[Rfam]
RNA sequence: UGAGUAAGACAAGUGACCGCGCAGGCAUUUGCCCGCGAGGAAAGUCCGAGCUCCGCAGGACAGGGUGCCGGGUAACACCCGGUGAAGGCGACUUCAAGGAAAGUGCAACAGAAAUAAACCGCCGUAUUGCCGCACGGUAAUGCGGUAAGGAUGGAAAGGCGGGGUAAGAGCCCACCGAUACCUCGGUAACGCGGUAUGCCAUGUAAACCCCACUCGGAGCAAGAUUGAAAUGGGAGCAUUUAAUGGCUGUCCGUCACGCUCCCCGUAAUCGCUUGAGUGUGCAGGUAACUGCACAUCCAGAUAGAUGGUCACACAAACAGAACUCGGCUUACGGCUUGCUCAAUUC
Numbered sequence: 001u002g003a004g005u006a007a008g009a010c011a012a013g014u015g016a017c018c019g020c021g022c023a024g025g026c027a028u029u030u031g032c033c034c035g036c037g038a039g040g041a042a043a044g045u046c047c048g049a050g051c052u053c054c055g056c057a058g059g060a061c062a063g064g065g066u067g068c069c070g071g072g073u074a075a076c077a078c079c080c081g082g083u084g085a086a087g088g089c090g091a092c093u094u095c096a097a098g099g100a101a102a103g104u105g106c107a108a109c110a111g112a113a114a115u116a117a118a119c120c121g122c123c124g125u126a127u128u129g130c131c132g133c134a135c136g137g138u139a140a141u142g143c144g145g146u147a148a149g150g151a152u153g154g155a156a157a158g159g160c161g162g163g164g165u166a167a168g169a170g171c172c173c174a175c176c177g178a179u180a181c182c183u184c185g186g187u188a189a190c191g192c193g194g195u196a197u198g199c200c201a202u203g204u205a206a207a208c209c210c211c212a213c214u215c216g217g218a219g220c221a222a223g224a225u226u227g228a229a230a231u232g233g234g235a236g237c238a239u240u241u242a243a244u245g246g247c248u249g250u251c252c253g254u255c256a257c258g259c260u261c262c263c264c265g266u267a268a269u270c271g272c273u274u275g276a277g278u279g280u281g282c283a284g285g286u287a288a289c290u291g292c293a294c295a296u297c298c299a300g301a302u303a304g305a306u307g308g309u310c311a312c313a314c315a316a317a318c319a320g321a322a323c324u325c326g327g328c329u330u331a332c333g334g335c336u337u338g339c340u341c342a343a344u345u346c
Base pairs, nucleotide, nucleotide: 001342002341003340004339005338006337007336008335010333013312014311015310016309017308018307020037021036022035024033025032026031042330043329044328046327047326048325049324050323051219052218053217054216058252059251060250061249063215064214065213066212067211068082069081070080071079072078083097084095085094086093087092098210099209103208104207105204106203107202119150120149121146122145123144124143125142126141127140128139129138130137131136158176159175161173162172163171177199178197179196180195181194182193184191185190223270224269225268226267232263233262234261235260236259237258244256245255246254247253277296278295279294280293281292282291283290284289

This 346-nucleotide RNA sequence from Clostridium sp. CAG:138 belongs to the Rfam family "Bacterial RNase P class A". It is annotated as a ribozyme. Lineage of the source: Bacteria > Bacillati > Eubacteriales > Clostridiaceae > Clostridium.